This 111-nucleotide RNA sequence belongs to the Rfam family "Actinomyces-1 RNA". Rfam's curators put it in the seed alignment.
RNA sequence: AUCACCGCCGGACAGGGACGGUCUCGAGGGUUGGGGAGCCCAGUGACAGAUCGAUCCUCUGAGAUGGGGUCGGGUCAUAGGGAGCCUGGCAUCAUCGUUCUGGCGAAGGAG
Numbered sequence: 001a002u003c004a005c006c007g008c009c010g011g012a013c014a015g016g017g018a019c020g021g022u023c024u025c026g027a028g029g030g031u032u033g034g035g036g037a038g039c040c041c042a043g044u045g046a047c048a049g050a051u052c053g054a055u056c057c058u059c060u061g062a063g064a065u066g067g068g069g070u071c072g073g074g075u076c077a078u079a080g081g082g083a084g085c086c087u088g089g090c091a092u093c094a095u096c097g098u099u100c101u102g103g104c105g106a107a108g109g110a111g
Stems, first nucleotide, its partner, number of pairs: 006105007013061004018055001019053006028041005063096003067093002071088005